[Rfam]
RNA sequence: UGGGCGGUAUCUCUUUGAGCUGCACCAAGCAUUUGGAACACGGAUAUCUCUAAACCCGCUUAGAUCCUUGAGGCUGAGACGGAAUU
Numbered sequence: 001u002g003g004g005c006g007g008u009a010u011c012u013c014u015u016u017g018a019g020c021u022g023c024a025c026c027a028a029g030c031a032u033u034u035g036g037a038a039c040a041c042g043g044a045u046a047u048c049u050c051u052a053a054a055c056c057c058g059c060u061u062a063g064a065u066c067c068u069u070g071a072g073g074c075u076g077a078g079a080c081g082g083a084a085u086u
Stems, first nucleotide, its partner, number of pairs: 001027003004023005010018002056082003059078005065073002
The family of this 86-nucleotide sequence from Sporomusaceae bacterium FL31 is "pan motif".
Pairs were carried over by alignment from the consensus structure, which is taken from published work.
The family's RNA type in Rfam is cis-regulatory element.
A search with the family's covariance model found it, with a score of 48 bits.